This 162-nucleotide RNA from Deinococcus yavapaiensis belongs to the Rfam family "FMN riboswitch aptamer (RFN element)". Pairs were carried over by alignment from the consensus structure, which is taken from published work. The source organism's lineage runs through Bacteria, Deinococcales, Deinococcaceae, Deinococcus and Deinococcus yavapaiensis. From the family's description: The RFN element is a highly conserved domain that is found frequently in the 5'-untranslated regions of prokaryotic mRNAs that encode for flavin mononucleotide (FMN) biosynthesis and transport proteins.
RNA sequence: GCCAUCCUUCGGGGCAGGGUGAAAUUCCUUACCGGCGGUGAUCGACCUCGGAAGACAAGAACGAGGUCGUCAGCCCGCGAAGCCGAGCCAAACUUGCAGGCGAGGCCCGACUCGGUGACAUUCCGAGGCCGACGGUCACAGUCCGGAUGAGAGAAGGAGGAG
Numbered sequence: 001g002c003c004a005u006c007c008u009u010c011g012g013g014g015c016a017g018g019g020u021g022a023a024a025u026u027c028c029u030u031a032c033c034g035g036c037g038g039u040g041a042u043c044g045a046c047c048u049c050g051g052a053a054g055a056c057a058a059g060a061a062c063g064a065g066g067u068c069g070u071c072a073g074c075c076c077g078c079g080a081a082g083c084c085g086a087g088c089c090a091a092a093c094u095u096g097c098a099g100g101c102g103a104g105g106c107c108c109g110a111c112u113c114g115g116u117g118a119c120a121u122u123c124c125g126a127g128g129c130c131g132a133c134g135g136u137c138a139c140a141g142u143c144c145g146g147a148u149g150a151g152a153g154a155a156g157g158a159g160g161a162g
Base pairs, nucleotide, nucleotide: 003160005158006157007156008155009154010153017029018028019027031142032141033131034130035078036077037076038075073129074128082106083105111127112126113125114124115123133145134144135143